[Rfam]
RNA sequence: GGUCUAGGAAUCCGAUGUCAUCACUAAAAGCCAAUGACCCAGCUGCCUCAUGCCCAUCAGGCUUUAUUAAUGCUCUGAUGGCAGAAGGGCAGCGGACACUCGAUGUCCCAAGUCUGUGCUCCUUGGUGAGCCCAAGGAGGAUGCGUGGCUGGCAUCCCACAACAGUCUCAAAGGGACAUGGCUGCUGGAACUGUGGCAUCUGUGGUUUUUAUCUGACUUUCAAGCUGAGACC
Dot-bracket structure: ...........(.((((...((.(.............(((.(((((.......(((((((((.........).)))))))).......))))).)......((((((.......(((.(((((((.......))))))).))).......))))))................))............)))....................)))).).................
Numbered sequence: 001g002g003u004c005u006a007g008g009a010a011u012c013c014g015a016u017g018u019c020a021u022c023a024c025u026a027a028a029a030g031c032c033a034a035u036g037a038c039c040c041a042g043c044u045g046c047c048u049c050a051u052g053c054c055c056a057u058c059a060g061g062c063u064u065u066a067u068u069a070a071u072g073c074u075c076u077g078a079u080g081g082c083a084g085a086a087g088g089g090c091a092g093c094g095g096a097c098a099c100u101c102g103a104u105g106u107c108c109c110a111a112g113u114c115u116g117u118g119c120u121c122c123u124u125g126g127u128g129a130g131c132c133c134a135a136g137g138a139g140g141a142u143g144c145g146u147g148g149c150u151g152g153c154a155u156c157c158c159a160c161a162a163c164a165g166u167c168u169c170a171a172a173g174g175g176a177c178a179u180g181g182c183u184g185c186u187g188g189a190a191c192u193g194u195g196g197c198a199u200c201u202g203u204g205g206u207u208u209u210u211a212u213c214u215g216a217c218u219u220u221c222a223a224g225c226u227g228a229g230a231c232c
Stems, first nucleotide, its partner, number of pairs: 012215001014213004021189002024187001038174002040095001042093005054081008062072001102156006115143003119139007

A member of the RNA family "Small Cajal body specific RNA 6" from Molossus molossus, 232 nucleotides long. By type it is a small Cajal body RNA. The base pairs follow the family's consensus structure, which is taken from published work. The source organism's lineage runs through Eukaryota, Teleostomi, Mammalia, Boreoeutheria and Molossus. Its family is annotated with nucleolus and RNA processing in the Gene Ontology. U88 is small Cajal body specific RNA (scaRNA). scaRNAs are a novel class of small nuclear RNAs which localise to the Cajal bodies. U88 is found associated with both fibrillarin and Gar1p and co-localises with coilin in Cajal bodies.